RNA sequence: UGUGCGCCGUUCGUUUUAGAAUUCCUACGCUUUACCGGUUCAUUUGAAAGGCAAAGCGUUUGAAUUCUGAAACGAAAAGCAU
Number, nucleotide and partner (000 for none) at each position: 001u000002g000003u000004g000005c000006g000007c000008c000009g000010u076011u075012c074013g073014u072015u071016u070017u069018a068019g067020a066021a000022u064023u063024c062025c000026u000027a059028c058029g057030c056031u055032u054033u053034a000035c051036c050037g000038g000039u000040u000041c000042a000043u000044u000045u000046g000047a000048a000049a000050g036051g035052c000053a033054a032055a031056g030057c029058g028059u027060u000061u000062g024063a023064a022065u000066u020067c019068u018069g017070a016071a015072a014073c013074g012075a011076a010077a000078a000079g000080c000081a000082u000

Rfam assigns this 82-nucleotide RNA sequence from Coptotermes formosanus to the family "mir-927 microRNA precursor family".
The organism belongs to Coptotermes, within Eukaryota.
Gene Ontology terms of the family: RISC complex and miRNA-mediated post-transcriptional gene silencing.
The family's consensus secondary structure was predicted with RNAalifold.